[Rfam]
RNA sequence: UUGAUACUAUUAGAGUGCAGUUGACUCGUAGGAGGUUAAAGAAAAGAUAGAAAGAUAUAUCAUUUCAGUCGUCAUUUAUUUUCCAUUGACGGUCUGGUUGUUACUUGUCCACGU
Numbered sequence: 001u002u003g004a005u006a007c008u009a010u011u012a013g014a015g016u017g018c019a020g021u022u023g024a025c026u027c028g029u030a031g032g033a034g035g036u037u038a039a040a041g042a043a044a045a046g047a048u049a050g051a052a053a054g055a056u057a058u059a060u061c062a063u064u065u066c067a068g069u070c071g072u073c074a075u076u077u078a079u080u081u082u083c084c085a086u087u088g089a090c091g092g093u094c095u096g097g098u099u100g101u102u103a104c105u106u107g108u109c110c111a112c113g114u
Stems, first nucleotide, its partner, number of pairs: 002019002005017004050109001052106003059098004068093007076085001
Small nucleolar RNA snoR111: a 114-nucleotide RNA from Artemisia annua. For this family Rfam cites "Experimental RNomics: identification of 140 candidates for small non-messenger RNAs in the plant Arabidopsis thaliana" (Marker et al., Curr Biol, 2002). NCBI's taxonomy places the organism under Eukaryota, Euphyllophyta, Mesangiospermae, Anthemideae, Artemisia. The match comes from Rfam's covariance-model search (39 bits). Rfam 15.1 lists 533 matches to the family in 223 species.